[Rfam]
RNA sequence: GCCUUCGCGGGAGGCGACGACACGCGGCCCACAUUCCGGCCGCCGGGACCGCGCCGAGCCACUGGCGGGACCGAACCGCGGUGUG
Numbered sequence: 001g002c003c004u005u006c007g008c009g010g011g012a013g014g015c016g017a018c019g020a021c022a023c024g025c026g027g028c029c030c031a032c033a034u035u036c037c038g039g040c041c042g043c044c045g046g047g048a049c050c051g052c053g054c055c056g057a058g059c060c061a062c063u064g065g066c067g068g069g070a071c072c073g074a075a076c077c078g079c080g081g082u083g084u085g
Base pairs, nucleotide, nucleotide: 003083005081006080007079008078009077010076013060014059015058023053024052025051026050027049029047038072039071040068041067042066043065044064
This 85-nucleotide sequence belongs to the Rfam family "c-di-GMP-II-GAG riboswitch aptamer".
Rfam's curators put it in the seed alignment.
The base pairs follow the family's consensus structure, which is taken from published work.
Rfam links the family to the GO terms regulation of gene expression and cyclic-di-GMP binding.